The record is a 162-nucleotide RNA from Paenalicyclobacillus cellulosilyticus, which matches "glmS glucosamine-6-phosphate activated ribozyme aptamer" in Rfam. NCBI's taxonomy places the organism under Bacteria, Bacillati, Bacillota, Bacilli, Paenalicyclobacillus. A search with the family's covariance model found it, with a score of 64 bits. The base pairs follow the family's consensus structure, which is taken from published work. This entry contains a glucosamine-6-phosphate activated ribozyme that is found in the mRNA for GlmS. GlmS is an enzyme that uses fructose-6-phosphate and glutamine to generate glucosamine-6-phosphate.
[Rfam]
RNA sequence: GGAACACGGGAAGCGCCUGGACUGGCGGGCGGAGCCCGGCCAGUUGACGCGGAGGAGGUUGGCGAACCAUUCGGCGGAUGCCUCCCGGCGCGCCGAUCGCGCCGCAAGCGAAGCCUGAAACCCCUCGGGCGACCGGGGGAACAAGGGCGAGCAGAUCGGUGA
Numbered sequence: 001g002g003a004a005c006a007c008g009g010g011a012a013g014c015g016c017c018u019g020g021a022c023u024g025g026c027g028g029g030c031g032g033a034g035c036c037c038g039g040c041c042a043g044u045u046g047a048c049g050c051g052g053a054g055g056a057g058g059u060u061g062g063c064g065a066a067c068c069a070u071u072c073g074g075c076g077g078a079u080g081c082c083u084c085c086c087g088g089c090g091c092g093c094c095g096a097u098c099g100c101g102c103c104g105c106a107a108g109c110g111a112a113g114c115c116u117g118a119a120a121c122c123c124c125u126c127g128g129g130c131g132a133c134c135g136g137g138g139g140a141a142c143a144a145g146g147g148c149g150a151g152c153a154g155a156u157c158g159g160u161g162a
Stems, first nucleotide, its partner, number of pairs: 020045007029036001054085005063073003086104006108152002113148002122139007